[Rfam]
RNA sequence: GUGAUAGCCAAGCAAACCAGUUGCAAGCGUUGGAACCACUGCUGAUAGUCUGGUUUUA
Numbered sequence: 001g002u003g004a005u006a007g008c009c010a011a012g013c014a015a016a017c018c019a020g021u022u023g024c025a026a027g028c029g030u031u032g033g034a035a036c037c038a039c040u041g042c043u044g045a046u047a048g049u050c051u052g053g054u055u056u057u058a
Stems, first nucleotide, its partner, number of pairs: 008033002011031001012028002016054005